[Rfam]
RNA sequence: CCCGUGGUUUAAUGAUGAAUUAAUGUUGGUAGGGACAUCUGAGUGAAUGUGAAGAAACGCCAACAUCUCUGACACCAUGGG
Numbered sequence: 001c002c003c004g005u006g007g008u009u010u011a012a013u014g015a016u017g018a019a020u021u022a023a024u025g026u027u028g029g030u031a032g033g034g035a036c037a038u039c040u041g042a043g044u045g046a047a048u049g050u051g052a053a054g055a056a057a058c059g060c061c062a063a064c065a066u067c068u069c070u071g072a073c074a075c076c077a078u079g080g081g
Stems, first nucleotide, its partner, number of pairs: 001081005
RNA: Small nucleolar RNA SNORD74
Organism: Oryzias melastigma